This 95-nucleotide RNA sequence from Streptomyces sp. Tue6028 belongs to the Rfam family "TPP riboswitch aptamer (THI element)". Lineage of the source: Bacteria > Bacillati > Actinomycetota > Actinomycetes > Streptomyces. A search with the family's covariance model found it, with a score of 69 bits. Gene Ontology term of the family: thiamine pyrophosphate binding. Vitamin B(1) in its active form thiamin pyrophosphate (TPP) is an essential coenzyme that is synthesised by coupling of pyrimidine and thiazole moieties in bacteria.
RNA sequence: GUACCGGACACGGGGUGCCCCGAUCGAGGGCUGAGAUCACACCCGUCGAACCUGAACCAGUUCGUACUGGCGGAGGGAUGUCUUCAUGCCAUUGG
Numbered sequence: 001g002u003a004c005c006g007g008a009c010a011c012g013g014g015g016u017g018c019c020c021c022g023a024u025c026g027a028g029g030g031c032u033g034a035g036a037u038c039a040c041a042c043c044c045g046u047c048g049a050a051c052c053u054g055a056a057c058c059a060g061u062u063c064g065u066a067c068u069g070g071c072g073g074a075g076g077g078a079u080g081u082c083u084u085c086a087u088g089c090c091a092u093u094g095g
Stems, first nucleotide, its partner, number of pairs: 006083005011045004016039001017031004051076003057070004